[Rfam]
RNA sequence: AGUCAUAUGCUUGUCUCAAAGAUUAAGCCAUGCAUGUCUAAGUAUAAGCUUUUAUACGGUGAAACUGCGAAUGGCUCAUUAAAACAGUUAUAGUUUAUUUGAUGGUCUCUCUUACAUGGAUAACCAUGGUAAUUCUAUGGCUAAUACAUGCGCAAUCGCCUCCUUCUCUGGAGGGGCUGUGUUUAUUAGAUACAAAACCAACCCACUUUGUGGAGUCCUGGUGAUUCAUAGUAACCGAACGGAUCGCAGUUGGCUUCGGCCCGCGAUGGAUCAUUCAAGUUUCUGACCUAUCAGCUUUCGACGGUAGGGUAUUGGCCUACCGUGGCAGUGACGGGUAACGGGGAAUUAGGGUUCGAUUCCGGAGAGGGAGCCUGAGAAACGGCUACCACAUCCAAGGAAGGCAGCAGGCGCGCAAAUUACCCAAUGAAAACAGUUUCGAGGUAGUGACGAGAAAUAACAAUACAGGGCAUUUUAUGCUCUGUAAUUGGAAUGAUGGGAAUGUAAAACCCUUUCAGAGUAACAAUUGGAGGGCAAGUCUGGUGCCAGCAGCCGCGGUAAUUCCAGCUCCAAUAGUGUAUAUUAGAGUUGUUG
Numbered sequence: 001a002g003u004c005a006u007a008u009g010c011u012u013g014u015c016u017c018a019a020a021g022a023u024u025a026a027g028c029c030a031u032g033c034a035u036g037u038c039u040a041a042g043u044a045u046a047a048g049c050u051u052u053u054a055u056a057c058g059g060u061g062a063a064a065c066u067g068c069g070a071a072u073g074g075c076u077c078a079u080u081a082a083a084a085c086a087g088u089u090a091u092a093g094u095u096u097a098u099u100u101g102a103u104g105g106u107c108u109c110u111c112u113u114a115c116a117u118g119g120a121u122a123a124c125c126a127u128g129g130u131a132a133u134u135c136u137a138u139g140g141c142u143a144a145u146a147c148a149u150g151c152g153c154a155a156u157c158g159c160c161u162c163c164u165u166c167u168c169u170g171g172a173g174g175g176g177c178u179g180u181g182u183u184u185a186u187u188a189g190a191u192a193c194a195a196a197a198c199c200a201a202c203c204c205a206c207u208u209u210g211u212g213g214a215g216u217c218c219u220g221g222u223g224a225u226u227c228a229u230a231g232u233a234a235c236c237g238a239a240c241g242g243a244u245c246g247c248a249g250u251u252g253g254c255u256u257c258g259g260c261c262c263g264c265g266a267u268g269g270a271u272c273a274u275u276c277a278a279g280u281u282u283c284u285g286a287c288c289u290a291u292c293a294g295c296u297u298u299c300g301a302c303g304g305u306a307g308g309g310u311a312u313u314g315g316c317c318u319a320c321c322g323u324g325g326c327a328g329u330g331a332c333g334g335g336u337a338a339c340g341g342g343g344a345a346u347u348a349g350g351g352u353u354c355g356a357u358u359c360c361g362g363a364g365a366g367g368g369a370g371c372c373u374g375a376g377a378a379a380c381g382g383c384u385a386c387c388a389c390a391u392c393c394a395a396g397g398a399a400g401g402c403a404g405c406a407g408g409c410g411c412g413c414a415a416a417u418u419a420c421c422c423a424a425u426g427a428a429a430a431c432a433g434u435u436u437c438g439a440g441g442u443a444g445u446g447a448c449g450a451g452a453a454a455u456a457a458c459a460a461u462a463c464a465g466g467g468c469a470u471u472u473u474a475u476g477c478u479c480u481g482u483a484a485u486u487g488g489a490a491u492g493a494u495g496g497g498a499a500u501g502u503a504a505a506a507c508c509c510u511u512u513c514a515g516a517g518u519a520a521c522a523a524u525u526g527g528a529g530g531g532c533a534a535g536u537c538u539g540g541u542g543c544c545a546g547c548a549g550c551c552g553c554g555g556u557a558a559u560u561c562c563a564g565c566u567c568c569a570a571u572a573g574u575g576u577a578u579a580u581u582a583g584a585g586u587u588g589u590u591g
Stems, first nucleotide, its partner, number of pairs: 001581003005578007014452004020445001021411001027409003031406003036068002041066003048060002075364003085285003090280002094278002100273004115150004124140006158177004164171002183234006197222004206212001244266004252261003287335003294326003301323008339361004343354004366387002369384003389400001391398002417443001419442003425438005458487003461483010494514002496511001498510001524570006537564004546553002